[Rfam]
RNA sequence: CGGUGGGACACCCUUCCCCAACGAAGGGCACUUAUCUGUAAGGAUAGAUAUU
Numbered sequence: 001c002g003g004u005g006g007g008a009c010a011c012c013c014u015u016c017c018c019c020a021a022c023g024a025a026g027g028g029c030a031c032u033u034a035u036c037u038g039u040a041a042g043g044a045u046a047g048a049u050a051u052u
Stems, first nucleotide, its partner, number of pairs: 011028006032047006

Source information
Rfam assigns this 52-nucleotide RNA from Nereida ignava to the family "serC leader". The family's RNA type in Rfam is cis-regulatory leader. Lineage of the source: Bacteria > Pseudomonadati > Pseudomonadota > Alphaproteobacteria > Nereida. Rfam's curators write: This family is a putative regulatory RNA structure that is found upstream of the serC-serA operon in some alpha-proteobacteria.